[Rfam]
RNA sequence: AUAAAGAGUAGAAGCGGUUAAGCCUUGCGGCCUGGACAUUGCUCUUUCC
Numbered sequence: 001a002u003a004a005a006g007a008g009u010a011g012a013a014g015c016g017g018u019u020a021a022g023c024c025u026u027g028c029g030g031c032c033u034g035g036a037c038a039u040u041g042c043u044c045u046u047u048c049c
Stems, first nucleotide, its partner, number of pairs: 005045006015034001018036002022031003